[Rfam]
RNA sequence: UACAAUAGACUAGGCAUUUUCAAGGGUGGUCGGCUAACCUUCUCGAGUAGGAGGUGAUGCCCUGUGGAAGUUAAAGACGCUUUGACGCUGAUGAUCUCAUUUGCGAGCUUAGUGGUUCUCAUUCUUUCACAGAAGAAGAAAUAGACCUCCCUUGGGCAACCGGCCUUGGAGGUCUAUCUUCGUCACACCAUAUGCAGCUGAUCACCCUUGAAGGGCGAGCUAUUGAAAAAGACCGCAGAUGCCCCCGCAUCCGCGG
Numbered sequence: 001u002a003c004a005a006u007a008g009a010c011u012a013g014g015c016a017u018u019u020u021c022a023a024g025g026g027u028g029g030u031c032g033g034c035u036a037a038c039c040u041u042c043u044c045g046a047g048u049a050g051g052a053g054g055u056g057a058u059g060c061c062c063u064g065u066g067g068a069a070g071u072u073a074a075a076g077a078c079g080c081u082u083u084g085a086c087g088c089u090g091a092u093g094a095u096c097u098c099a100u101u102u103g104c105g106a107g108c109u110u111a112g113u114g115g116u117u118c119u120c121a122u123u124c125u126u127u128c129a130c131a132g133a134a135g136a137a138g139a140a141a142u143a144g145a146c147c148u149c150c151c152u153u154g155g156g157c158a159a160c161c162g163g164c165c166u167u168g169g170a171g172g173u174c175u176a177u178c179u180u181c182g183u184c185a186c187a188c189c190a191u192a193u194g195c196a197g198c199u200g201a202u203c204a205c206c207c208u209u210g211a212a213g214g215g216c217g218a219g220c221u222a223u224u225g226a227a228a229a230a231g232a233c234c235g236c237a238g239a240u241g242c243c244c245c246c247g248c249a250u251c252c253g254c255g256g
Stems, first nucleotide, its partner, number of pairs: 001227001003225003007221002011217001012199002014195004019156008028146001030144001035057001037055001039054005066128005080093001103120001105118002168179001205215002233256004238251005
RNA: BsrG